[Rfam]
Nucleotides: 050
Base pairs, nucleotide, nucleotide: 001020003018004017005016006015007014008013037050038049039048040047041046
Number, partner (000 for none) and nucleotide at each position: 001020c002000c003018g004017c005016a006015g007014g008013g009000a010000c011000g012000a013008c014007c015006u016005u017004g018003c019000c020001g021000u022000u023000g024000a025000c026000a027000g028000g029000g030000c031000c032000a033000u034000u035000u036000c037050a038049g039048g040047g041046g042000a043000c044000g045000a046041c047040c048039c049038u050037u